Iron response element I: a 35-nucleotide RNA from Pipistrellus kuhlii. The literature on the family includes a 2002 paper in Insect Biochem Mol Biol by Nichol and Winzerling, "Structured RNA upstream of insect cap distal iron responsive elements enhances iron regulatory protein-mediated control of translation". Taxonomically the source falls in Pipistrellus (Eukaryota, Craniata, Euteleostomi, Theria). Its family is annotated with response to iron ion in the Gene Ontology. The family has 62 seed sequences and 6,829 matches in Rfam 15.1. The family's RNA type in Rfam is cis-regulatory element. The match comes from Rfam's covariance-model search (35 bits).

[Rfam]
RNA sequence: UGGUUUUCUGCUUCAACAAUGCUUGGAUGGAACUG
Dot-bracket structure: (((((.((.(.((((((...).)))))))))))))